A member of the RNA family "R2 RNA element" from Diaphorina citri, 194 nucleotides long. This family represents the 3' UTR region of the R2 retrotransposable element. This family is known to interact with the R2-encoded reverse transcriptase in a reaction known as target primed reverse transcription (TPRT). The literature on the family includes a 2004 paper in RNA by Ruschak et al., "Secondary structure models of the 3' untranslated regions of diverse R2 RNAs". The family's consensus secondary structure is taken from published work.
Nucleotides: 194
Base pairs, nucleotide, nucleotide: 027065028064029063030062031061032060070193071192072191081190082189083188084187085186088185089184090183096134097133098132099131100130105126106125107124108123109122110121112120113119114118136167138165139164140163
Number, partner (000 for none) and nucleotide at each position: 001000a002000c003000a004000u005000c006000g007000u008000c009000a010000u011000a012000g013000u014000g015000a016000g017000c018000c019000g020000a021000c022000a023000u024000u025000a026000g027065g028064g029063c030062c031061c032060u033000g034000a035000a036000g037000u038000a039000a040000u041000g042000u043000c044000c045000a046000a047000u048000a049000u050000a051000u052000c053000u054000g055000g056000u057000u058000c059000c060032a061031g062030g063029g064028c065027c066000c067000u068000a069000a070193u071192g072191g073000g074000a075000a076000g077000a078000g079000g080000g081190a082189g083188a084187g085186g086000u087000u088185g089184g090183g091000u092000u093000u094000u095000a096134g097133u098132g099131g100130g101000u102000c103000u104000g105126g106125a107124u108123g109122u110121c111000c112120c113119g114118g115000u116000a117000u118114c119113c120112g121110g122109a123108c124107a125106u126105c127000a128000a129000u130100c131099c132098c133097a134096c135000a136167c137000u138165c139164c140163c141000c142000a143000u144000u145000g146000c147000a148000a149000a150000g151000g152000u153000u154000u155000u156000u157000u158000g159000c160000a161000a162000u163140g164139g165138g166000c167136g168000u169000c170000u171000u172000u173000u174000u175000g176000a177000a178000g179000a180000u181000u182000u183090c184089c185088c186085c187084c188083u189082c190081u191072c192071c193070a194000c